[Rfam]
RNA sequence: GCGGGUCUUCAGGGCGGGGUGGAAUUCCCCACCGGCGGUAGGCGGCGCGAGCCGCGAGCCCGCGAGCGCCCCGGUCCUUCGCGGCCGGGGGUCAGCAGACCGAGUCAGAUGCUCGGGCCGACGGUCACAGUCCGGAUGGAAGAAGAUUCGC
Numbered sequence: 001g002c003g004g005g006u007c008u009u010c011a012g013g014g015c016g017g018g019g020u021g022g023a024a025u026u027c028c029c030c031a032c033c034g035g036c037g038g039u040a041g042g043c044g045g046c047g048c049g050a051g052c053c054g055c056g057a058g059c060c061c062g063c064g065a066g067c068g069c070c071c072c073g074g075u076c077c078u079u080c081g082c083g084g085c086c087g088g089g090g091g092u093c094a095g096c097a098g099a100c101c102g103a104g105u106c107a108g109a110u111g112c113u114c115g116g117g118c119c120g121a122c123g124g125u126c127a128c129a130g131u132c133c134g135g136a137u138g139g140a141a142g143a144a145g146a147u148u149c150g151c
Stems, first nucleotide, its partner, number of pairs: 003149008017029003031131002033120002035063004058118002066096002100116005122134003
RNA: FMN riboswitch aptamer (RFN element)
Organism: Comamonadaceae bacterium